[Rfam]
RNA sequence: UGUCAGGUUGGAACCCACACUAAUUGAGCUAGGCCGGGCCCCGUCGUAGGUUUGGUCACCUACGGAAUGGGGAUAUGGAAAGGAUCUCGUACCCUGUGAGUCAAACGAAAGUUGUGCUUGGGAUAUGGGUCUAUGCCUAGUAGGUUAUGUGGUGUGUCUCUGACU
Numbered sequence: 001u002g003u004c005a006g007g008u009u010g011g012a013a014c015c016c017a018c019a020c021u022a023a024u025u026g027a028g029c030u031a032g033g034c035c036g037g038g039c040c041c042c043g044u045c046g047u048a049g050g051u052u053u054g055g056u057c058a059c060c061u062a063c064g065g066a067a068u069g070g071g072g073a074u075a076u077g078g079a080a081a082g083g084a085u086c087u088c089g090u091a092c093c094c095u096g097u098g099a100g101u102c103a104a105a106c107g108a109a110a111g112u113u114g115u116g117c118u119u120g121g122g123a124u125a126u127g128g129g130u131c132u133a134u135g136c137c138u139a140g141u142a143g144g145u146u147a148u149g150u151g152g153u154g155u156g157u158c159u160c161u162g163a164c165u
Stems, first nucleotide, its partner, number of pairs: 002164005010159003015152005021147004026137001028136002034078003039072005046063006082132005088127004095122001097120001099118002102116002104113003

Source information:
Tombusvirus 3' cap-independent translation element: a 165-nucleotide sequence from Tombusvirus melongenae. It is one of the family's seed sequences. Rfam classes the family as a cis-regulatory element. NCBI's taxonomy places the organism under Viruses, Tolucaviricetes, Tolivirales, Tombusvirus, Eggplant mottled crinkle virus.